Nucleotides: 046
Base pairs, nucleotide, nucleotide: 006021007020008019009018010017011016
Number, partner (000 for none) and nucleotide at each position: 001000c002000c003000a004000a005000a006021g007020g008019c009018u010017c011016u012000u013000u014000u015000a016011a017010g018009a019008g020007c021006c022000a023000c024000u025000c026000a027000a028000g029000u030000u031000u032000u033000c034000a035000c036000a037000a038000u039000g040000a041000g042000a043000g044000c045000u046000g